Shown here is a 95-nucleotide RNA from Orycteropus afer, a member of the family "Small nucleolar RNA SNORD91 family".
Lineage of the source: Eukaryota > Craniata > Vertebrata > Theria > Orycteropus afer.
By type it is a C/D-box small nucleolar RNA.
[Rfam]
RNA sequence: CUCGGGAACCAGUGAUGUUUUAAUCCAAAAUGUCUGAACCUAUCUGAAGCAUCCAAGUGAUGCAACUUCUGUGUGGUACUGAGGUUUCUCUGCCA
Number, nucleotide and partner (000 for none) at each position: 001c000002u000003c000004g089005g088006g087007a086008a085009c084010c083011a000012g000013u000014g000015a000016u000017g000018u000019u000020u000021u000022a000023a000024u000025c000026c000027a000028a000029a000030a000031u000032g000033u000034c000035u000036g000037a000038a000039c000040c000041u000042a000043u000044c000045u000046g000047a000048a000049g000050c000051a000052u000053c000054c000055a000056a000057g000058u000059g000060a000061u000062g000063c000064a000065a000066c000067u000068u000069c000070u000071g000072u000073g000074u000075g000076g000077u000078a000079c000080u000081g000082a000083g010084g009085u008086u007087u006088c005089u004090c000091u000092g000093c000094c000095a000